[Rfam]
RNA sequence: AAGGCGCGCCUUGAGACCCGCCGCCCCGCGGCACUGGGCGCGCGGGUGCAUCGGCGCCCCGAGA
Numbered sequence: 001a002a003g004g005c006g007c008g009c010c011u012u013g014a015g016a017c018c019c020g021c022c023g024c025c026c027c028g029c030g031g032c033a034c035u036g037g038g039c040g041c042g043c044g045g046g047u048g049c050a051u052c053g054g055c056g057c058c059c060c061g062a063g064a
Stems, first nucleotide, its partner, number of pairs: 003060002006057001008055001016047006022040005
RNA: Trypanosomatid snoRNA TB11Cs4H2
Organism: Trypanosoma conorhini